Shown here is an 82-nucleotide sequence from Allomuricauda sp., a member of the family "tRNA".
Nucleotides: 082
Stems, first nucleotide, its partner, number of pairs: 001081007010026003028044005058074005
Number, partner (000 for none) and nucleotide at each position: 001081g002080c003079g004078g005077a006076u007075g008000u009000g010026g011025u012024g013000g014000a015000a016000c017000u018000g019000g020000u021000a022000g023000a024012c025011a026010c027000g028044c029043u030042a031041g032040a033000c034000u035000u036000a037000g038000g039000a040032u041031c042030u043029a044028g045000u046000g047000c048000c049000g050000c051000a052000a053000g054000g055000c056000g057000u058074g059073g060072g061071g062070g063000u064000u065000c066000g067000a068000c069000u070062c071061c072060c073059u074058u075007c076006a077005u078004c079003c080002g081001c082000a
Rfam classes the family as a transfer RNA.
Its Rfam clan is "tRNA clan".
Its family is annotated with triplet codon-amino acid adaptor activity in the Gene Ontology.